[Rfam]
RNA sequence: AGAGUUUGAGGCCAUAGCAGAAGUGCUCAUGGUGCAACCCUGUCAGAUUCCAGCAAAUCUAUGACUUCUGCU
Numbered sequence: 001a002g003a004g005u006u007u008g009a010g011g012c013c014a015u016a017g018c019a020g021a022a023g024u025g026c027u028c029a030u031g032g033u034g035c036a037a038c039c040c041u042g043u044c045a046g047a048u049u050c051c052a053g054c055a056a057a058u059c060u061a062u063g064a065c066u067u068c069u070g071c072u
Stems, first nucleotide, its partner, number of pairs: 008040001010039002016072007023035003045060005
RNA: Mammalian CPEB3 ribozyme